This 247-nucleotide RNA sequence from Medicago truncatula belongs to the Rfam family "MIR2655 microRNA precursor family". The family has 25 seed sequences and 892 matches in Rfam 15.1.

RNA sequence: CCUUUAACUAUUAAAAGUUUCAUUUUGAUCCUGUAACUUACUUUUUGGUUUCGUUUUGGUCCCUUAACUCUUCCUCGUCAACCACUUUGGUCCUUUAUGUCAGGAUGAAUGUAUUAGAGUUAAGUGACCAAAAUGAAACCAAAAAAUAAGUUAAGGGACCAAAACGAAACUUUUAAUAGUUAAGGGACCAAAAGAAAACCCAAAAAUAAGUUAUUGGACCGAAACAAAACUUUUAAUAGUUAAGGAA
Number, nucleotide and partner (000 for none) at each position: 001c000002c245003u244004u243005u242006a241007a240008c239009u000010a000011u000012u000013a000014a000015a000016a000017g000018u000019u000020u000021c000022a000023u224024u223025u222026u000027g220028a000029u218030c000031c216032u000033g214034u213035a212036a211037c210038u209039u208040a207041c000042u205043u204044u000045u202046u000047g200048g199049u198050u000051u000052c000053g000054u000055u000056u000057u000058g000059g000060u000061c000062c000063c000064u000065u000066a000067a000068c000069u000070c000071u000072u000073c000074c000075u000076c000077g000078u000079c000080a000081a000082c000083c000084a000085c000086u000087u000088u000089g000090g000091u000092c000093c000094u000095u000096u000097a000098u000099g000100u000101c000102a000103g000104g000105a000106u000107g000108a000109a000110u000111g000112u000113a000114u000115u000116a000117g000118a000119g000120u000121u000122a000123a000124g000125u000126g000127a000128c000129c000130a000131a000132a000133a000134u000135g000136a000137a000138a000139c000140c000141a000142a000143a000144a000145a000146a000147u000148a000149a000150g000151u000152u000153a000154a000155g000156g000157g000158a000159c000160c000161a000162a000163a000164a000165c000166g000167a000168a000169a000170c000171u000172u000173u000174u000175a000176a000177u000178a000179g000180u000181u000182a000183a000184g000185g000186g000187a000188c000189c000190a000191a000192a000193a000194g000195a000196a000197a000198a049199c048200c047201c000202a045203a000204a043205a042206a000207u040208a039209a038210g037211u036212u035213a034214u033215u000216g031217g000218a029219c000220c027221g000222a025223a024224a023225c000226a000227a000228a000229a000230c000231u000232u000233u000234u000235a000236a000237u000238a000239g008240u007241u006242a005243a004244g003245g002246a000247a000
The match comes from Rfam's covariance-model search (154 bits).